[Rfam]
RNA sequence: AACCCCCUGAAAUCUGCUUCAACUUGGCGGGAGAGACAGAGAUCAGGGGGUCCAAAAGCAGGCGCUGGCCUGUGAAGGAUUAUAGCAAAUGCAUAACCUAACACAACCCCUCAGACUCGCCAU
Number, nucleotide and partner (000 for none) at each position: 001a000002a051003c050004c049005c048006c047007c046008u045009g044010a043011a000012a000013u040014c039015u038016g037017c035018u000019u034020c033021a000022a000023c000024u119025u000026g117027g116028c000029g000030g000031g112032a000033g020034a019035g017036a000037c016038a015039g014040a013041g000042a000043u010044c009045a008046g007047g006048g005049g004050g003051u002052c000053c000054a000055a000056a000057a000058g000059c000060a000061g000062g000063c000064g000065c000066u000067g000068g000069c000070c000071u000072g000073u000074g000075a000076a000077g000078g000079a000080u000081u000082a000083u000084a000085g000086c000087a000088a000089a000090u000091g000092c000093a000094u000095a000096a000097c000098c000099u000100a000101a000102c000103a000104c000105a000106a000107c000108c000109c000110c000111u000112c031113a000114g000115a000116c027117u026118c000119g024120c000121c000122a000123u000
RNA: Pseudoknot of the regulatory region of the repBA gene
Organism: Yersinia pestis